[Rfam]
RNA sequence: CCUGCUCUCAAGAAGCUCACAGUCUAAUGGGGGAGAUGACAUGCAAACAGCCAUGUACAAACACACAGUAUAUAGGGUAUAUUGGAACUAAUCAACAGAGGGAAGAUUUUGUUGGCUUGUUGGCUCCCCCAUUAGAUUGUGAGCUUCUUGAGGGCAGG
Numbered sequence: 001c002c003u004g005c006u007c008u009c010a011a012g013a014a015g016c017u018c019a020c021a022g023u024c025u026a027a028u029g030g031g032g033g034a035g036a037u038g039a040c041a042u043g044c045a046a047a048c049a050g051c052c053a054u055g056u057a058c059a060a061a062c063a064c065a066c067a068g069u070a071u072a073u074a075g076g077g078u079a080u081a082u083u084g085g086a087a088c089u090a091a092u093c094a095a096c097a098g099a100g101g102g103a104a105g106a107u108u109u110u111g112u113u114g115g116c117u118u119g120u121u122g123g124c125u126c127c128c129c130c131a132u133u134a135g136a137u138u139g140u141g142a143g144c145u146u147c148u149u150g151a152g153g154g155c156a157g158g
Stems, first nucleotide, its partner, number of pairs: 001158029030125002
RNA: mir-28 microRNA precursor family
Organism: Vombatus ursinus